[Rfam]
Nucleotides: 086
Stems, first nucleotide, its partner, number of pairs: 002085005
Number, partner (000 for none) and nucleotide at each position: 001000g002085a003084g004083a005082a006081c007000g008000g009000u010000g011000a012000c013000g014000a015000g016000u017000u018000a019000u020000a021000a022000a023000a024000g025000a026000c027000c028000u029000g030000u031000a032000a033000u034000g035000a036000a037000u038000u039000g040000c041000g042000a043000a044000u045000a046000u047000g048000a049000u050000c051000g052000c053000a054000g055000a056000u057000a058000u059000u060000u061000a062000u063000g064000a065000a066000c067000a068000u069000c070000u071000a072000a073000g074000g075000g076000a077000c078000u079000g080000a081006g082005u083004u084003c085002u086000a
Annotation:
The record is an 86-nucleotide sequence from Durio zibethinus, which matches "Small nucleolar RNA SNORD25" in Rfam. The family has 12 seed sequences and 985 matches in Rfam 15.1. Its Rfam clan is "SNORD25 clan". The organism belongs to Durio, within Eukaryota. It is annotated as a C/D-box small nucleolar RNA. On this family, see Qu et al., Nucleic Acids Res 2001: "Identification of 10 novel snoRNA gene clusters from Arabidopsis thaliana". It scores 61 bits against the family's covariance model. The family's consensus secondary structure was predicted with PFOLD.